Shown here is a 37-nucleotide RNA from Desulfatibacillum alkenivorans, a member of the family "abiF RNA". It is one of the family's seed sequences.
[Rfam]
Nucleotides: 037
Stems, first nucleotide, its partner, number of pairs: 001036006008024003
Number, partner (000 for none) and nucleotide at each position: 001036c002035c003034g004033c005032c006031c007000a008024a009023g010022c011000c012000u013000c014000u015000g016000a017000c018000g019000c020000a021000a022010g023009c024008u025000c026000a027000a028000a029000u030000c031006g032005g033004g034003c035002g036001g037000u
Rfam 15.1 lists 282 matches to the family in 274 species. The family's RNA type in Rfam is small RNA.